[Rfam]
RNA sequence: ACAAUGAUACGCCCUUGUCGUCGUAGUCCGAGCGUUUGAAGCGUCGCAGGCAACGAGCAGGGCCGCGUGAGAACCACGCGGGGGUGAGAUUCCCGUGG
Numbered sequence: 001a002c003a004a005u006g007a008u009a010c011g012c013c014c015u016u017g018u019c020g021u022c023g024u025a026g027u028c029c030g031a032g033c034g035u036u037u038g039a040a041g042c043g044u045c046g047c048a049g050g051c052a053a054c055g056a057g058c059a060g061g062g063c064c065g066c067g068u069g070a071g072a073a074c075c076a077c078g079c080g081g082g083g084g085u086g087a088g089a090u091u092c093c094c095g096u097g098g
Stems, first nucleotide, its partner, number of pairs: 012095001013062006063081003067077003082094003
RNA: pemK RNA